[Rfam]
This 135-nucleotide RNA sequence from Myotis lucifugus belongs to the Rfam family "Small nucleolar RNA SNORA71".
Lineage of the source: Eukaryota > Metazoa > Bilateria > Yangochiroptera > Myotis.
The members of this family belong to the H/ACA class of snoRNAs which bind a number of proteins (including dyskerin, Gar1p and Nop10p) to form snoRNP complexes.
The base pairs follow the family's consensus structure, which was predicted with PFOLD.
Rfam links the family to the GO terms RNA processing and nucleolus.
A reference for the family is Ganot et al. (1997), "The family of box ACA small nucleolar RNAs is defined by an evolutionarily conserved secondary structure and ubiquitous sequence elements essential for RNA accumulation", Genes Dev.
It scores 120 bits against the family's covariance model.
RNA sequence: ACCUGCAUUCGCAAGUGAUUGUGGGCUGCCUGUGCCCUGGUCGUUGAUAAUGCAGGGAGAGGAACUGCUGAAAGCAUUUCCCCGUGUUUGGAGGGUCUGCCCCCAGUUGGUUCCAAACCUUGGAGCUUUCGUACA
Numbered sequence: 001a002c003c004u005g006c007a008u009u010c011g012c013a014a015g016u017g018a019u020u021g022u023g024g025g026c027u028g029c030c031u032g033u034g035c036c037c038u039g040g041u042c043g044u045u046g047a048u049a050a051u052g053c054a055g056g057g058a059g060a061g062g063a064a065c066u067g068c069u070g071a072a073a074g075c076a077u078u079u080c081c082c083c084g085u086g087u088u089u090g091g092a093g094g095g096u097c098u099g100c101c102c103c104c105a106g107u108u109g110g111u112u113c114c115a116a117a118c119c120u121u122g123g124a125g126c127u128u129u130c131g132u133a134c135a
Base pairs, nucleotide, nucleotide: 002056003055004054005053006052007051008050009049014045015044016043017042018041019040020039021038023037024036025035026034067132069131070130071129072128073127074126075125086118087117088116089115090114091112092111095108